[Rfam]
T-box leader: a 170-nucleotide sequence from Alkaliphilus peptidifermentans.

RNA sequence: UAUAAAGCUUUGAUAAAGAGGAGUAAUUAAUAAAACUGCAAUAGCGAGUUGGAGAAGGUGAAAGUCCAAUACAGUUUGUUAAUGAAGGGCGCUUUUGAGCUUGAAUAACUAAGUGGGUAUUUAAUACCAACUAGGGUGGAACCGCGGAAGAUAAGUCUUUCGUCCCUAAC
Number, nucleotide and partner (000 for none) at each position: 001u000002a000003u000004a000005a000006a000007g100008c099009u000010u000011u000012g000013a000014u000015a095016a094017a093018g092019a000020g000021g000022a000023g000024u000025a000026a083027u082028u081029a080030a079031u078032a000033a000034a000035a000036c000037u073038g072039c000040a000041a000042u000043a000044g000045c000046g000047a000048g070049u069050u068051g067052g066053a065054g000055a000056a000057g000058g000059u000060g000061a000062a000063a000064g000065u053066c052067c051068a050069a049070u048071a000072c038073a037074g000075u000076u000077u000078g031079u030080u029081a028082a027083u026084g000085a000086a000087g000088g000089g000090c000091g000092c018093u017094u016095u015096u000097g000098a000099g008100c007101u000102u000103g000104a000105a000106u000107a000108a000109c000110u000111a000112a000113g000114u000115g000116g128117g127118u126119a125120u124121u000122u000123a000124a120125u119126a118127c117128c116129a000130a000131c000132u000133a167134g166135g165136g164137u000138g000139g000140a000141a000142c000143c000144g163145c162146g161147g160148a159149a158150g157151a000152u000153a000154a000155g000156u000157c150158u149159u148160u147161c146162g145163u144164c136165c135166c134167u133168a000169a000170c000